[Rfam]
RNA sequence: AUUAAAAACGUUAUUGGGUGCAGCAUUGACGAGACUCCAUCGGAAAUGAUAAAAAAAAAAAAAAAUCCGCCUACGAACAGAUGGGAUGUCAUCAACGCUGCACUCAAUGACGUUUUUU
Numbered sequence: 001a002u003u004a005a006a007a008a009c010g011u012u013a014u015u016g017g018g019u020g021c022a023g024c025a026u027u028g029a030c031g032a033g034a035c036u037c038c039a040u041c042g043g044a045a046a047u048g049a050u051a052a053a054a055a056a057a058a059a060a061a062a063a064a065a066u067c068c069g070c071c072u073a074c075g076a077a078c079a080g081a082u083g084g085g086a087u088g089u090c091a092u093c094a095a096c097g098c099u100g101c102a103c104u105c106a107a108u109g110a111c112g113u114u115u116u117u118u
Stems, first nucleotide, its partner, number of pairs: 006115006013108012026095003031090002